[Rfam]
Rfam assigns this 98-nucleotide RNA from Asanoa hainanensis to the family "Glycine riboswitch aptamer". Taxonomically the source falls in Asanoa (Bacteria, Actinomycetota, Actinomycetes, Micromonosporaceae). The family has 44 seed sequences and 9,425 matches in Rfam 15.1. Rfam describes the family as follows. This family represents the bacterial glycine riboswitch.

RNA sequence: CACAUCCGCGUGGGAGAGCUCGCCGGGCCUCGGCCCGGUGGCGCCGAAGGGGCAAAUCCUCCCCGGAACCUCUCAGGCAAAAGGACCGCGCGGACAUG
Numbered sequence: 001c002a003c004a005u006c007c008g009c010g011u012g013g014g015a016g017a018g019c020u021c022g023c024c025g026g027g028c029c030u031c032g033g034c035c036c037g038g039u040g041g042c043g044c045c046g047a048a049g050g051g052g053c054a055a056a057u058c059c060u061c062c063c064c065g066g067a068a069c070c071u072c073u074c075a076g077g078c079a080a081a082a083g084g085a086c087c088g089c090g091c092g093g094a095c096a097u098g
Stems, first nucleotide, its partner, number of pairs: 006093008020041007043078003046074002050072003057065001